The record is a 136-nucleotide RNA sequence from Leptobrachium leishanense, which matches "Small nucleolar RNA SNORD94" in Rfam. Rfam links the family to the GO terms RNA processing and nucleolus. By type it is a C/D-box small nucleolar RNA. Rfam 15.1 lists 802 matches to the family in 622 species.
RNA sequence: AAGGCGAUGAUGAACGGCGCAGGGGUACAGACCUCGGCUGGAUCAUGGGGGCCGAGUGCGAGCAUCUUUGUGUAUCCUGCAUGUGGCAGGUGACCACAGAGCACUCGCAUGAGAACGGAGCCGCACUCUGAGCCUC
Numbered sequence: 001a002a003g004g005c006g007a008u009g010a011u012g013a014a015c016g017g018c019g020c021a022g023g024g025g026u027a028c029a030g031a032c033c034u035c036g037g038c039u040g041g042a043u044c045a046u047g048g049g050g051g052c053c054g055a056g057u058g059c060g061a062g063c064a065u066c067u068u069u070g071u072g073u074a075u076c077c078u079g080c081a082u083g084u085g086g087c088a089g090g091u092g093a094c095c096a097c098a099g100a101g102c103a104c105u106c107g108c109a110u111g112a113g114a115a116c117g118g119a120g121c122c123g124c125a126c127u128c129u130g131a132g133c134c135u136c
Stems, first nucleotide, its partner, number of pairs: 002135004